[Rfam]
RNA: Guanidine-II riboswitch aptamer (mini-ykkC)
RNA sequence: AAGCGGGGACGACCCCGCCACUCCAUGUCGAUCCGGGGACGUCCCCU
Numbered sequence: 001a002a003g004c005g006g007g008g009a010c011g012a013c014c015c016c017g018c019c020a021c022u023c024c025a026u027g028u029c030g031a032u033c034c035g036g037g038g039a040c041g042u043c044c045c046c047u
Stems, first nucleotide, its partner, number of pairs: 003018006035046004